Rfam assigns this 88-nucleotide RNA sequence from Coptis chinensis to the family "MIR2275 microRNA precursor family".
It scores 76 bits against the family's covariance model.
Rfam 15.1 lists 785 matches to the family in 111 species.
Pairs were carried over by alignment from the consensus structure, which was predicted with RNAalifold.
NCBI's taxonomy places the organism under Eukaryota, Viridiplantae, Euphyllophyta, Coptidoideae, Coptis.

RNA sequence: UGUUUGAAUAUGAGAAUUGGAUGGAACCAAAUUCUUUUGUCAAUGGUAAUACAGAAUUUGGUUUCCUCCAAUAUCUCAUCUUCAACAA
Numbered sequence: 001u002g003u004u005u006g007a008a009u010a011u012g013a014g015a016a017u018u019g020g021a022u023g024g025a026a027c028c029a030a031a032u033u034c035u036u037u038u039g040u041c042a043a044u045g046g047u048a049a050u051a052c053a054g055a056a057u058u059u060g061g062u063u064u065c066c067u068c069c070a071a072u073a074u075c076u077c078a079u080c081u082u083c084a085a086c087a088a
Base pairs, nucleotide, nucleotide: 004085005084006083007082008081011078012077013076014075016072017071018070019069020068021067023065024064025063026062027061028060029059030058032056033055